[Rfam]
RNA: Actinomyces-1 RNA
Nucleotides: 109
Stems, first nucleotide, its partner, number of pairs: 006103007013058003018054007028041004060094003063090003068085004
Number, partner (000 for none) and nucleotide at each position: 001000a002000u003000c004000g005000c006103c007102g008101c009100u010099g011098g012097a013058c014057g015056g016000a017000a018054c019053g020052g021051g022050u023049c024048g025000c026000g027000a028041g029040g030039g031038a032000c033000g034000g035000g036000c037000u038031u039030c040029c041028c042000c043000g044000c045000u046000g047000g048024u049023g050022a051021u052020c053019c054018g055000g056015c057014c058013g059000a060094g061093a062092g063090c064089c065088a066000c067000c068085a069084g070083g071082g072000u073000u074000g075000c076000a077000g078000g079000g080000a081000c082071c083070c084069c085068u086000g087000a088065u089064g090063g091000a092062c093061u094060c095000g096000c097012u098011c099010c100009g101008g102007c103006g104000a105000g106000g107000g108000a109000g